[Rfam]
This 128-nucleotide RNA sequence from Schinkia azotoformans belongs to the Rfam family "PyrR binding site". This family represents the PyrR binding site and terminator structure. By type it is a cis-regulatory element. NCBI's taxonomy places the organism under Bacteria, Bacillota, Caryophanales, Schinkia, Schinkia azotoformans. The match comes from Rfam's covariance-model search (61 bits).
RNA sequence: AGGUCCUUUAACUACAGUCCCGUGAGGCUGAGAAGGAAAUCGUGAUAUGAAUACUAGGGGAAGACUGUCCUCUUAUCUUCGUGUACAAAAAACGAUCCUCUCGCCAAUCGGUGAGAGGAUUUUUGCUU
Numbered sequence: 001a002g003g004u005c006c007u008u009u010a011a012c013u014a015c016a017g018u019c020c021c022g023u024g025a026g027g028c029u030g031a032g033a034a035g036g037a038a039a040u041c042g043u044g045a046u047a048u049g050a051a052u053a054c055u056a057g058g059g060g061a062a063g064a065c066u067g068u069c070c071u072c073u074u075a076u077c078u079u080c081g082u083g084u085a086c087a088a089a090a091a092a093c094g095a096u097c098c099u100c101u102c103g104c105c106a107a108u109c110g111g112u113g114a115g116a117g118g119a120u121u122u123u124u125g126c127u128u
Base pairs, nucleotide, nucleotide: 004037005036006035007034008033009032015030016029017028018027019026049080050079051078053076056073057072058071059070060069061068092123094121095120096119097118098117099116100115101114102113103112104111105110